[Rfam]
RNA sequence: GGCUGGUCCUAAUGUAGUGAGUUAUCUCAAUGGAUUGUUCACACGGUAAGUUACAGAUUGUACUCCUUGUUCCACCCUUUUCCCGCUUUUCACGACUGCAGUUGACUAGUCUUAA
Numbered sequence: 001g002g003c004u005g006g007u008c009c010u011a012a013u014g015u016a017g018u019g020a021g022u023u024a025u026c027u028c029a030a031u032g033g034a035u036u037g038u039u040c041a042c043a044c045g046g047u048a049a050g051u052u053a054c055a056g057a058u059u060g061u062a063c064u065c066c067u068u069g070u071u072c073c074a075c076c077c078u079u080u081u082c083c084c085g086c087u088u089u090u091c092a093c094g095a096c097u098g099c100a101g102u103u104g105a106c107u108a109g110u111c112u113u114a115a
Base pairs, nucleotide, nucleotide: 001111002110003109004108005107006106007105008104011102014099015098017093018092019091020090021089045077046076050072